The family of this 284-nucleotide sequence from Armadillidium nasatum is "Nuclear RNase P". It is annotated as a ribozyme. Its Rfam clan is "RNaseP clan". The match comes from Rfam's covariance-model search (98 bits).
RNA sequence: GAAGUAGGGGCCGGUUUAGGGGGUCAGACGAAAGUCUUCCCUGGGAAGGUCUGAGAGAAAGGGUUUCAAGGUUCUUGACGGACUGUUUCUGAAAAGAAAUGCAGGGGACCAGAAAAGUGUUGUUCUGCCAUGCAGGGGUCUUAGGACUUCUGGUCAGUUUUGCCCAGAAGGAAGUUUGUCCCUGUAGGUCUUGAUUGUAAACCUUCUGUACCCAGCUUAGUUAAGUGCGAUUAACCGGGUGGCUUGAAUGCCAUAACUCAAUUCAGACUAUCUCCAACUGCUUC
Numbered sequence: 001g002a003a004g005u006a007g008g009g010g011c012c013g014g015u016u017u018a019g020g021g022g023g024u025c026a027g028a029c030g031a032a033a034g035u036c037u038u039c040c041c042u043g044g045g046a047a048g049g050u051c052u053g054a055g056a057g058a059a060a061g062g063g064u065u066u067c068a069a070g071g072u073u074c075u076u077g078a079c080g081g082a083c084u085g086u087u088u089c090u091g092a093a094a095a096g097a098a099a100u101g102c103a104g105g106g107g108a109c110c111a112g113a114a115a116a117g118u119g120u121u122g123u124u125c126u127g128c129c130a131u132g133c134a135g136g137g138g139u140c141u142u143a144g145g146a147c148u149u150c151u152g153g154u155c156a157g158u159u160u161u162g163c164c165c166a167g168a169a170g171g172a173a174g175u176u177u178g179u180c181c182c183u184g185u186a187g188g189u190c191u192u193g194a195u196u197g198u199a200a201a202c203c204u205u206c207u208g209u210a211c212c213c214a215g216c217u218u219a220g221u222u223a224a225g226u227g228c229g230a231u232u233a234a235c236c237g238g239g240u241g242g243c244u245u246g247a248a249u250g251c252c253a254u255a256a257c258u259c260a261a262u263u264c265a266g267a268c269u270a271u272c273u274c275c276a277a278c279u280g281c282u283u284c
Stems, first nucleotide, its partner, number of pairs: 001284004005277001007275001011237001013235001015233001018042005051266005061213004070084005085100006101209007120194003239254005